MIR2950 microRNA precursor family: a 92-nucleotide sequence from Tetracentron sinense. The organism belongs to Tetracentron, within Eukaryota.

RNA sequence: CGUGGGUUUAUGUUAUAUUCCAUCUCUUGCACACUGGAUCAGCCUCAGCUGCAGGUUGGUGUGCAAGGGAUGGAAUACAGCAUCUAUCCAUG
Numbered sequence: 001c002g003u004g005g006g007u008u009u010a011u012g013u014u015a016u017a018u019u020c021c022a023u024c025u026c027u028u029g030c031a032c033a034c035u036g037g038a039u040c041a042g043c044c045u046c047a048g049c050u051g052c053a054g055g056u057u058g059g060u061g062u063g064c065a066a067g068g069g070a071u072g073g074a075a076u077a078c079a080g081c082a083u084c085u086a087u088c089c090a091u092g
Stems, first nucleotide, its partner, number of pairs: 001092007010083005016077022039054001